[Rfam]
RNA sequence: AUUAAUUACAUAUGAGAAUCAUGUAUAACUCCAAGAAUAUGGCUUGGGGGUCUCUACCAGGAACCAAUAACUCCUGACUACAAAAUGCGUAUUAUAGCGU
Numbered sequence: 001a002u003u004a005a006u007u008a009c010a011u012a013u014g015a016g017a018a019u020c021a022u023g024u025a026u027a028a029c030u031c032c033a034a035g036a037a038u039a040u041g042g043c044u045u046g047g048g049g050g051u052c053u054c055u056a057c058c059a060g061g062a063a064c065c066a067a068u069a070a071c072u073c074c075u076g077a078c079u080a081c082a083a084a085a086u087g088c089g090u091a092u093u094a095u096a097g098c099g100u
Base pairs, nucleotide, nucleotide: 018086019085022082023081024080025079029049030048031047032046033045034044035043058076059075060074061073062072
Annotation:
Shown here is a 100-nucleotide RNA from Bacillus cereus, a member of the family "Purine riboswitch aptamer".